[Rfam]
RNA sequence: AAUAAACAAGGCUAAACCUAUCGUAAGGUAGGGGCGGAAAGUCGCGGAUCCAAGAAUGGAAAGCCGGACUGCCAAC
Numbered sequence: 001a002a003u004a005a006a007c008a009a010g011g012c013u014a015a016a017c018c019u020a021u022c023g024u025a026a027g028g029u030a031g032g033g034g035c036g037g038a039a040a041g042u043c044g045c046g047g048a049u050c051c052a053a054g055a056a057u058g059g060a061a062a063g064c065c066g067g068a069c070u071g072c073c074a075a076c
Base pairs, nucleotide, nucleotide: 012037013036017032018031019030020029021028022027040070041069042068043067045066046065047064049060050059
The record is a 76-nucleotide RNA sequence from Methyloglobulus morosus, which matches "c-di-GMP-I riboswitch aptamer" in Rfam.